[Rfam]
RNA sequence: CCCGCCAUUGGUACAUCCAUUGGCCCGGAUGAUCCAGUGCUGAUGACAGGAAAAUUUCAUAACAACAGCUGCCUACUGGAUAAGGAAGCUGCAAUCCGGAAUGGAGAAGUCAACUCUUUCAGGAAUGCGGUUUAGAUUUUUACGGCCGUUUUCAGCUGUUCU
Numbered sequence: 001c002c003c004g005c006c007a008u009u010g011g012u013a014c015a016u017c018c019a020u021u022g023g024c025c026c027g028g029a030u031g032a033u034c035c036a037g038u039g040c041u042g043a044u045g046a047c048a049g050g051a052a053a054a055u056u057u058c059a060u061a062a063c064a065a066c067a068g069c070u071g072c073c074u075a076c077u078g079g080a081u082a083a084g085g086a087a088g089c090u091g092c093a094a095u096c097c098g099g100a101a102u103g104g105a106g107a108a109g110u111c112a113a114c115u116c117u118u119u120c121a122g123g124a125a126u127g128c129g130g131u132u133u134a135g136a137u138u139u140u141u142a143c144g145g146c147c148g149u150u151u152u153c154a155g156c157u158g159u160u161c162u
Stems, first nucleotide, its partner, number of pairs: 001050002004047001007044007014031005032081006066158006088131005101119001103117003
RNA: DUF2800 RNA